RNA: MIR807 microRNA precursor family
RNA sequence: AACCACACUAUCGAUGAAUGGAUCCACUCGCGAGAUAAUGUGAUUGUUUCACCUAGGACGAGGACAUGGCAUGCUAUUACCAGCCAUCGCACGAAAUUAAUAGGAUGCCACGUCCUCAUCCUAGAUGGAAUAACCACUUUAUCCCAUGGGUGAAUCCAUUCAGUGGUAAUGUGGUU
Numbered sequence: 001a002a003c004c005a006c007a008c009u010a011u012c013g014a015u016g017a018a019u020g021g022a023u024c025c026a027c028u029c030g031c032g033a034g035a036u037a038a039u040g041u042g043a044u045u046g047u048u049u050c051a052c053c054u055a056g057g058a059c060g061a062g063g064a065c066a067u068g069g070c071a072u073g074c075u076a077u078u079a080c081c082a083g084c085c086a087u088c089g090c091a092c093g094a095a096a097u098u099a100a101u102a103g104g105a106u107g108c109c110a111c112g113u114c115c116u117c118a119u120c121c122u123a124g125a126u127g128g129a130a131u132a133a134c135c136a137c138u139u140u141a142u143c144c145c146a147u148g149g150g151u152g153a154a155u156c157c158a159u160u161c162a163g164u165g166g167u168a169a170u171g172u173g174g175u176u
Stems, first nucleotide, its partner, number of pairs: 001176007009168005015162001017160003021156003025152004030147001032145001035142004041136002044133005051126001054123002057120002063114003069108004074103006086097002